[Rfam]
RNA sequence: CCGGCCGUUCCGUCGGCCGUAGCCUACCUGUGCAUGCGCUGCUGGCAACGGCGGCGUGUGAAGCCACAGGGAUAACGUAUCGGGCCUUCGGGCCGCGCCGGCUUCCGCGAGGAAGCGGCGUCACCUGCCAGCAUCACGGCGGAUGGGAUG
Numbered sequence: 001c002c003g004g005c006c007g008u009u010c011c012g013u014c015g016g017c018c019g020u021a022g023c024c025u026a027c028c029u030g031u032g033c034a035u036g037c038g039c040u041g042c043u044g045g046c047a048a049c050g051g052c053g054g055c056g057u058g059u060g061a062a063g064c065c066a067c068a069g070g071g072a073u074a075a076c077g078u079a080u081c082g083g084g085c086c087u088u089c090g091g092g093c094c095g096c097g098c099c100g101g102c103u104u105c106c107g108c109g110a111g112g113a114a115g116c117g118g119c120g121u122c123a124c125c126u127g128c129c130a131g132c133a134u135c136a137c138g139g140c141g142g143a144u145g146g147g148a149u150g
Base pairs, nucleotide, nucleotide: 002019003018004017005016006015007014028069029068030067031066032065033060034059035058036057037056038055039054040053041052042051043050044049083094084093085092086091096120097119098118099117105112106111125142126141127140128139129138
RNA: Group II catalytic intron D1-D4-7
Organism: Hydrogenophaga aromaticivorans